The family of this 172-nucleotide sequence from Vagococcus silagei is "M-box riboswitch aptamer (ykoK leader)". On this family, see Barrick et al., Proc Natl Acad Sci U S A 2004: "New RNA motifs suggest an expanded scope for riboswitches in bacterial genetic control".
RNA sequence: ACAAAUAUUAGUUAGGUGAGGCUCCUAUAUGAACAUAGGCUACUGCCCAAAAACGUCGAGAGACGCCAAUGGGUAUAACAGGGAUUGUCGGAUGAAGGCUUUCCAUAAUGUAGCUAAGGUUAAUUUAACCUUUACGUCGUAUAGUGCUAAAACUCAACGGAUAAAUAUUAGC
Numbered sequence: 001a002c003a004a005a006u007a008u009u010a011g012u013u014a015g016g017u018g019a020g021g022c023u024c025c026u027a028u029a030u031g032a033a034c035a036u037a038g039g040c041u042a043c044u045g046c047c048c049a050a051a052a053a054c055g056u057c058g059a060g061a062g063a064c065g066c067c068a069a070u071g072g073g074u075a076u077a078a079c080a081g082g083g084a085u086u087g088u089c090g091g092a093u094g095a096a097g098g099c100u101u102u103c104c105a106u107a108a109u110g111u112a113g114c115u116a117a118g119g120u121u122a123a124u125u126u127a128a129c130c131u132u133u134a135c136g137u138c139g140u141a142u143a144g145u146g147c148u149a150a151a152a153c154u155c156a157a158c159g160g161a162u163a164a165a166u167a168u169u170a171g172c
Stems, first nucleotide, its partner, number of pairs: 005168005011158002013096001015154003020148003025144008039114005045074005054065004082104003087099003116132005